[Rfam]
RNA: SAH (S-adenosyl-L-homocysteine) riboswitch aptamer
Organism: Curvibacter sp. PAE-UM
RNA sequence: CAAUCCAAGGAGCGUUGCAGCAGCACGGACCGUGUUGUCAGGCUUGGAUGUCCCAACGACGCUCACCUGCC
Numbered sequence: 001c002a003a004u005c006c007a008a009g010g011a012g013c014g015u016u017g018c019a020g021c022a023g024c025a026c027g028g029a030c031c032g033u034g035u036u037g038u039c040a041g042g043c044u045u046g047g048a049u050g051u052c053c054c055a056a057c058g059a060c061g062c063u064c065a066c067c068u069g070c071c
Stems, first nucleotide, its partner, number of pairs: 003049006021037006